The family of this 77-nucleotide RNA sequence from Acipenser ruthenus is "mir-34 microRNA precursor family".
Rfam's curators write: Human mir-34a was discovered computationally and later experimentally verified. The mature sequence is excised from the 5' arm of the hairpin.
Gene Ontology terms of the family: miRNA-mediated post-transcriptional gene silencing and RISC complex.
Clan: mir-34 clan.
The base pairs follow the family's consensus structure, which was predicted with RNAalifold.
[Rfam]
RNA sequence: GGUUCUGUGGCAGUGUCUUAGCUGGUUGUUGUGAACAGUUUGAACCAAGCAAUCAGCAAGUAUACUACCGCAGAAAU
Numbered sequence: 001g002g003u004u005c006u007g008u009g010g011c012a013g014u015g016u017c018u019u020a021g022c023u024g025g026u027u028g029u030u031g032u033g034a035a036c037a038g039u040u041u042g043a044a045c046c047a048a049g050c051a052a053u054c055a056g057c058a059a060g061u062a063u064a065c066u067a068c069c070g071c072a073g074a075a076a077u
Base pairs, nucleotide, nucleotide: 003075004074005073006072009069010068012066013065014064015063016062018060019059021057023055024054025053026052027051028050029049030048
Dot-bracket structure: ..((((..((.(((((.((.(.((((((((.................)))))))).).)).))))).))..))))..